[Rfam]
RNA: U12 minor spliceosomal RNA
Organism: Coffea canephora
RNA sequence: UUGCCUUAAACUAAUGAGUAAGGAAAACAAAGCAAACGGUGAGAGCCGUUUGCAGCGCUUAUGACCAAUCGUGUGGCGCAAGAAUUUAUGGAGGGGUUAUAGGCUGGCCAAGCGUUGACGCUGCUUACUUUCGCAGAACUCGCUUGAGCGGGCCUCCC
Numbered sequence: 001u002u003g004c005c006u007u008a009a010a011c012u013a014a015u016g017a018g019u020a021a022g023g024a025a026a027a028c029a030a031a032g033c034a035a036a037c038g039g040u041g042a043g044a045g046c047c048g049u050u051u052g053c054a055g056c057g058c059u060u061a062u063g064a065c066c067a068a069u070c071g072u073g074u075g076g077c078g079c080a081a082g083a084a085u086u087u088a089u090g091g092a093g094g095g096g097u098u099a100u101a102g103g104c105u106g107g108c109c110a111a112g113c114g115u116u117g118a119c120g121c122u123g124c125u126u127a128c129u130u131u132c133g134c135a136g137a138a139c140u141c142g143c144u145u146g147a148g149c150g151g152g153c154c155u156c157c158c
Base pairs, nucleotide, nucleotide: 004023005022006021007020008019032053033052034051035050036049037048038047039046055079056078057077058076059075095158096157101155102154103153104152105151107149109146110145112143113142114141121136122135123134124133